[Rfam]
This 105-nucleotide RNA sequence from Solanum lycopersicum belongs to the Rfam family "Small nucleolar RNA snoR97". It is annotated as an H/ACA-box small nucleolar RNA. The base pairs follow the family's consensus structure, which was predicted with WAR. For this family Rfam cites "Experimental RNomics: identification of 140 candidates for small non-messenger RNAs in the plant Arabidopsis thaliana" (Marker et al., Curr Biol, 2002). A search with the family's covariance model found it, with a score of 51 bits. Rfam 15.1 lists 862 matches to the family in 223 species.

RNA sequence: CUUUUGUGGUUGAGUGUAAAUGAAAACUCAUAAAUUGCGUGCAGUCCAUCACCUCCUAUCUUGCAUAUUUCACUAAGAUUGGAGUUAAAUAUCAGCACUACAUGU
Numbered sequence: 001c002u003u004u005u006g007u008g009g010u011u012g013a014g015u016g017u018a019a020a021u022g023a024a025a026a027c028u029c030a031u032a033a034a035u036u037g038c039g040u041g042c043a044g045u046c047c048a049u050c051a052c053c054u055c056c057u058a059u060c061u062u063g064c065a066u067a068u069u070u071c072a073c074u075a076a077g078a079u080u081g082g083a084g085u086u087a088a089a090u091a092u093c094a095g096c097a098c099u100a101c102a103u104g105u
Stems, first nucleotide, its partner, number of pairs: 039098004044093001051086001053084004059078004
Dot-bracket structure: ......................................((((.(......(.((((..((((............))))..)))).)......).)))).......